This 97-nucleotide RNA sequence from Nelumbo nucifera belongs to the Rfam family "Small nucleolar RNA R64/Z200 family". Gene Ontology terms of the family: RNA processing and nucleolus. Taxonomically the source falls in Nelumbo (Eukaryota, Streptophyta, Tracheophyta, Magnoliopsida). On this family, see Galardi et al., Mol Cell Biol 2002: "Purified box C/D snoRNPs are able to reproduce site-specific 2'-O-methylation of target RNA in vitro". The match comes from Rfam's covariance-model search (69 bits).
[Rfam]
RNA sequence: CCUCUGUGGUGAUGAAAUAUGAAAUUCUUCGCAAGUCAGACUUCAGAGAUUUUUUCCCUAAAAUCCAUGAGAAGAGAAUUCAUUUUCUGGUCAGAGA
Numbered sequence: 001c002c003u004c005u006g007u008g009g010u011g012a013u014g015a016a017a018u019a020u021g022a023a024a025u026u027c028u029u030c031g032c033a034a035g036u037c038a039g040a041c042u043u044c045a046g047a048g049a050u051u052u053u054u055u056c057c058c059u060a061a062a063a064u065c066c067a068u069g070a071g072a073a074g075a076g077a078a079u080u081c082a083u084u085u086u087c088u089g090g091u092c093a094g095a096g097a
Base pairs, nucleotide, nucleotide: 002096003095004094005093006092048065049064050063051062052061053060
Dot-bracket structure: .(((((.........................................((((((......))))))..........................))))).
Rfam 15.1 lists 748 matches to the family in 228 species.